A member of the RNA family "Nitrogen stress-induced RNA 1" from Symplocastrum torsivum, 53 nucleotides long.

RNA sequence: AAGUAGAUGCACCCUGAUGAUAAAAGCUUCGCCUCACGGCGAGGCUUUUUUUU
Numbered sequence: 001a002a003g004u005a006g007a008u009g010c011a012c013c014c015u016g017a018u019g020a021u022a023a024a025a026g027c028u029u030c031g032c033c034u035c036a037c038g039g040c041g042a043g044g045c046u047u048u049u050u051u052u053u
Base pairs, nucleotide, nucleotide: 003012004011026045027044028043029042030041031040032039033038
Dot-bracket structure: ..((......)).............((((((((....))))))))........
The source organism's lineage runs through Bacteria, Oscillatoriales, Microcoleaceae, Symplocastrum and Symplocastrum torsivum. The family's RNA type in Rfam is small RNA. A search with the family's covariance model found it, with a score of 45 bits.